[Rfam]
RNA sequence: CCCACACCUAUGUGUGUAGGACCCCAAACGUUCACCAUUAAAUUUGGCACAGAUCUUCAGGAAAGUUAUCACAUGGGUGUUGGACUUGACUUUUCUAGAGAUCUGUAACAAAUUUAAUGGUGAUCCUUUGGGGUCCUACACACAUGGAUGUGGA
Numbered sequence: 001c002c003c004a005c006a007c008c009u010a011u012g013u014g015u016g017u018a019g020g021a022c023c024c025c026a027a028a029c030g031u032u033c034a035c036c037a038u039u040a041a042a043u044u045u046g047g048c049a050c051a052g053a054u055c056u057u058c059a060g061g062a063a064a065g066u067u068a069u070c071a072c073a074u075g076g077g078u079g080u081u082g083g084a085c086u087u088g089a090c091u092u093u094u095c096u097a098g099a100g101a102u103c104u105g106u107a108a109c110a111a112a113u114u115u116a117a118u119g120g121u122g123a124u125c126c127u128u129u130g131g132g133g134u135c136c137u138a139c140a141c142a143c144a145u146g147g148a149u150g151u152g153g154a
Stems, first nucleotide, its partner, number of pairs: 002153005008147006015140014030125001032123001034121013049106009059096010069082001071080003